[Rfam]
RNA sequence: CAAUGAAAUCCGUCCUGCGGACGGGUGAAAUCCUGCCGUGCAGGAUGCAAUACGCGCCGCGUGUGAAAUCGCUG
Numbered sequence: 001c002a003a004u005g006a007a008a009u010c011c012g013u014c015c016u017g018c019g020g021a022c023g024g025g026u027g028a029a030a031u032c033c034u035g036c037c038g039u040g041c042a043g044g045a046u047g048c049a050a051u052a053c054g055c056g057c058c059g060c061g062u063g064u065g066a067a068a069u070c071g072c073u074g
Stems, first nucleotide, its partner, number of pairs: 008026008030046006050064006
Dot-bracket structure: .......((((((((...))))))))...((((((.....))))))...((((((...))))))..........

Description:
The record is a 74-nucleotide sequence, which matches "Gut-1 RNA" in Rfam.